[Rfam]
Small nucleolar SNORD12/SNORD106: a 90-nucleotide sequence from Chelonoidis abingdonii. Its Rfam clan is "SNORD12 clan". A search with the family's covariance model found it, with a score of 44 bits. Its family is annotated with RNA processing and nucleolus in the Gene Ontology. For this family Rfam cites "RNomics: an experimental approach that identifies 201 candidates for novel, small, non-messenger RNAs in mouse" (Huttenhofer et al., EMBO J, 2001). The base pairs follow the family's consensus structure, which was predicted with RNAalifold. The family has 8 seed sequences and 2,264 matches in Rfam 15.1.
RNA sequence: GGGCAGCUGCGUGAUGACAUUCUUUCCCCGGCAGAUCGACCGUGGCGAUGACCUUGUAUGAACAAGCCAAAGCGUGUCUGACGGCUGCCU
Numbered sequence: 001g002g003g004c005a006g007c008u009g010c011g012u013g014a015u016g017a018c019a020u021u022c023u024u025u026c027c028c029c030g031g032c033a034g035a036u037c038g039a040c041c042g043u044g045g046c047g048a049u050g051a052c053c054u055u056g057u058a059u060g061a062a063c064a065a066g067c068c069a070a071a072g073c074g075u076g077u078c079u080g081a082c083g084g085c086u087g088c089c090u
Stems, first nucleotide, its partner, number of pairs: 001090009